[Rfam]
RNA sequence: ACAAUAUUUGGACCGUCGGUCUACCGAAAAAUUUCAUCAGGUCGGUGGAAGAGCUUCCCUUUUUCAU
Numbered sequence: 001a002c003a004a005u006a007u008u009u010g011g012a013c014c015g016u017c018g019g020u021c022u023a024c025c026g027a028a029a030a031a032u033u034u035c036a037u038c039a040g041g042u043c044g045g046u047g048g049a050a051g052a053g054c055u056u057c058c059c060u061u062u063u064u065c066a067u
Stems, first nucleotide, its partner, number of pairs: 004064001006062001010058003016052002020049008

The record is a 67-nucleotide RNA from Bombyx mori, which matches "mir-2774 microRNA precursor family" in Rfam. It scores 61 bits against the family's covariance model. For this family Rfam cites "MicroRNAs of Bombyx mori identified by Solexa sequencing" (Liu et al., BMC Genomics, 2010).